[Rfam]
Nucleotides: 189
Stems, first nucleotide, its partner, number of pairs: 014059001017056003060101007071092001073090003120183012134154006
Number, partner (000 for none) and nucleotide at each position: 001000a002000c003000a004000c005000a006000a007000g008000g009000a010000a011000g012000g013000a014059g015000g016000u017056g018055g019054u020000c021000c022000u023000g024000c025000c026000g027000a028000u029000g030000a031000a032000u033000g034000a035000c036000u037000a038000c039000a040000g041000g042000a043000c044000a045000u046000g047000u048000g049000a050000g051000g052000u053000g054019g055018c056017u057000c058000g059014c060101g061100c062099c063098u064097g065096a066095g067000c068000g069000a070000g071092c072000u073090c074089g075088u076000u077000c078000c079000a080000c081000c082000a083000g084000g085000g086000a087000c088075g089074c090073g091000u092071g093000a094000g095066c096065u097064c098063g099062g100061g101060c102000a103000a104000u105000c106000c107000a108000c109000u110000c111000g112000a113000g114000c115000c116000a117000c118000c119000g120183g121182a122181a123180c124179c125178c126177g127176c128175g129174g130173g131172u132000a133000u134154g135153a136152c137151g138150g139149c140000a141000g142000u143000c144000g145000u146000c147000c148000a149139g150138c151137c152136g153135u154134c155000a156000g157000c158000g159000u160000c161000g162000g163000a164000u165000c166000g167000a168000c169000g170000c171000a172131g173130c174129c175128c176127g177126c178125g179124g180123g181122u182121u183120c184000u185000u186000u187000c188000c189000u